[Rfam]
RNA sequence: UUGAAGGCCUGGAGACUGAAGUCCUCUCUCUAUCCACAGAACAGGUACGGCACAGACAGCGGCAGUGCAAGCUUUUCCACUGUCCCAUUAUUGUGCCUCAGCCCUGGCCUGGAGGGACCAUGGUUAGGGGGAAGAGGGUUGUUCAGUCUCCACGCCCUUCAAUCCUUGGCUGCU
Numbered sequence: 001u002u003g004a005a006g007g008c009c010u011g012g013a014g015a016c017u018g019a020a021g022u023c024c025u026c027u028c029u030c031u032a033u034c035c036a037c038a039g040a041a042c043a044g045g046u047a048c049g050g051c052a053c054a055g056a057c058a059g060c061g062g063c064a065g066u067g068c069a070a071g072c073u074u075u076u077c078c079a080c081u082g083u084c085c086c087a088u089u090a091u092u093g094u095g096c097c098u099c100a101g102c103c104c105u106g107g108c109c110u111g112g113a114g115g116g117a118c119c120a121u122g123g124u125u126a127g128g129g130g131g132a133a134g135a136g137g138g139u140u141g142u143u144c145a146g147u148c149u150c151c152a153c154g155c156c157c158u159u160c161a162a163u164c165c166u167u168g169g170c171u172g173c174u
Base pairs, nucleotide, nucleotide: 002161003160004159006156007155010152011151012150013149014148015147016146017145018144019143020142023137024136025135026134027133029132030131031130034129037106038105039104047098050096051095052094053093054092055091061084062083063082064081065080109127110126111125112124115121

The record is a 174-nucleotide RNA from Notamacropus eugenii, which matches "TUC338" in Rfam. The organism belongs to Notamacropus, within Eukaryota. Rfam classes the family as a cis-regulatory element. A reference for the family is Braconi et al. (2011), "Expression and functional role of a transcribed noncoding RNA with an ultraconserved element in hepatocellular carcinoma", Proc Natl Acad Sci U S A.